Shown here is a 432-nucleotide sequence from Pirellula staleyi, a member of the family "Bacterial RNase P class A". NCBI's taxonomy places the organism under Bacteria, Planctomycetota, Pirellulales, Pirellula, Pirellula staleyi.
RNA sequence: GGAGUUGGGCAGACGACCGCUGGCUGCCAUUUGGCAGCGAGAGGAAAGUCCGGGCUCCACAGGACAGGGUGGUCGAUAACGUCGACCGGUCGUGAGAUCAGGGACAGUGCCACAGAAAACAGACCGCCGCUGCGGGCAUGAGCCCCCGUCAAGGUUUGAUUGUCUGCAUGCGGUAAGGGUGAAACGGUGCGGUAAGAGCGCACCAGCAGUCGAGGCGACUCGGCUGGCUAGGUAAACCCCGCCCGGAGCAAGACCAAGCAGAGAGCAUGUUGUCGGUGUCACAGCCGACAGCCGGAAUCGGUUCGGUUUCGUAUGACUCUCGGGUAGGUUGCCGGAGCUAGCGAGCAAUUGCUAGCCUAGAGAAAUGGUCGUCAGACGUUUUCGAUCCGUCGAAGACGCCAACAGAACCCGGCUUAUUGCCUGACUCCGAAA
Numbered sequence: 001g002g003a004g005u006u007g008g009g010c011a012g013a014c015g016a017c018c019g020c021u022g023g024c025u026g027c028c029a030u031u032u033g034g035c036a037g038c039g040a041g042a043g044g045a046a047a048g049u050c051c052g053g054g055c056u057c058c059a060c061a062g063g064a065c066a067g068g069g070u071g072g073u074c075g076a077u078a079a080c081g082u083c084g085a086c087c088g089g090u091c092g093u094g095a096g097a098u099c100a101g102g103g104a105c106a107g108u109g110c111c112a113c114a115g116a117a118a119a120c121a122g123a124c125c126g127c128c129g130c131u132g133c134g135g136g137c138a139u140g141a142g143c144c145c146c147c148g149u150c151a152a153g154g155u156u157u158g159a160u161u162g163u164c165u166g167c168a169u170g171c172g173g174u175a176a177g178g179g180u181g182a183a184a185c186g187g188u189g190c191g192g193u194a195a196g197a198g199c200g201c202a203c204c205a206g207c208a209g210u211c212g213a214g215g216c217g218a219c220u221c222g223g224c225u226g227g228c229u230a231g232g233u234a235a236a237c238c239c240c241g242c243c244c245g246g247a248g249c250a251a252g253a254c255c256a257a258g259c260a261g262a263g264a265g266c267a268u269g270u271u272g273u274c275g276g277u278g279u280c281a282c283a284g285c286c287g288a289c290a291g292c293c294g295g296a297a298u299c300g301g302u303u304c305g306g307u308u309u310c311g312u313a314u315g316a317c318u319c320u321c322g323g324g325u326a327g328g329u330u331g332c333c334g335g336a337g338c339u340a341g342c343g344a345g346c347a348a349u350u351g352c353u354a355g356c357c358u359a360g361a362g363a364a365a366u367g368g369u370c371g372u373c374a375g376a377c378g379u380u381u382u383c384g385a386u387c388c389g390u391c392g393a394a395g396a397c398g399c400c401a402a403c404a405g406a407a408c409c410c411g412g413c414u415u416a417u418u419g420c421c422u423g424a425c426u427c428c429g430a431a432a
Stems, first nucleotide, its partner, number of pairs: 001428010011417001012373007020041002023038006046415003050412005055248004062304004067244005072086005087101001088099004102239002107237002109233003124178002126174005131168008186204006206228001207226008252330004261321005337356008